A member of the RNA family "Lysine riboswitch aptamer" from Faecalicoccus pleomorphus, 166 nucleotides long.
[Rfam]
RNA sequence: GUUGAAGAUAGAGGUAGCGAUGCAUCAGAGUACUGCAGGGAGCCGGCGGGCUGUGAAAUACAGGAAAGGUAAUCAUCGCCGAAGGGAAUGAUAUGGCAAUGUCAUUUCUUGGGGCUUUGGGAAAUACUCAAUGCACUCCUUCGCAAGAAGAGGGGUUAUCUUAAAG
Numbered sequence: 001g002u003u004g005a006a007g008a009u010a011g012a013g014g015u016a017g018c019g020a021u022g023c024a025u026c027a028g029a030g031u032a033c034u035g036c037a038g039g040g041a042g043c044c045g046g047c048g049g050g051c052u053g054u055g056a057a058a059u060a061c062a063g064g065a066a067a068g069g070u071a072a073u074c075a076u077c078g079c080c081g082a083a084g085g086g087a088a089u090g091a092u093a094u095g096g097c098a099a100u101g102u103c104a105u106u107u108c109u110u111g112g113g114g115c116u117u118u119g120g121g122a123a124a125u126a127c128u129c130a131a132u133g134c135a136c137u138c139c140u141u142c143g144c145a146a147g148a149a150g151a152g153g154g155g156u157u158a159u160c161u162u163a164a165a166g
Stems, first nucleotide, its partner, number of pairs: 006161006017079006025071001033063003037059001083110012111137002114134002117131005139150004